[Rfam]
RNA: DUF3800-XI RNA
RNA sequence: AGGGCUGGUCAUAAGACCCGGGUCCACAUAUAGGUGGGCAGGACGCCC
Numbered sequence: 001a002g003g004g005c006u007g008g009u010c011a012u013a014a015g016a017c018c019c020g021g022g023u024c025c026a027c028a029u030a031u032a033g034g035u036g037g038g039c040a041g042g043a044c045g046c047c048c
Stems, first nucleotide, its partner, number of pairs: 002025005007018004